[Rfam]
RNA sequence: AGAAUGUGGAGUCCAGAUACCACCUAAAAAACGGGGCGUAACCGAAAAGCCAUACGAGUAGGAAAACU
Numbered sequence: 001a002g003a004a005u006g007u008g009g010a011g012u013c014c015a016g017a018u019a020c021c022a023c024c025u026a027a028a029a030a031a032c033g034g035g036g037c038g039u040a041a042c043c044g045a046a047a048a049g050c051c052a053u054a055c056g057a058g059u060a061g062g063a064a065a066a067c068u
Stems, first nucleotide, its partner, number of pairs: 006023004035051003042062002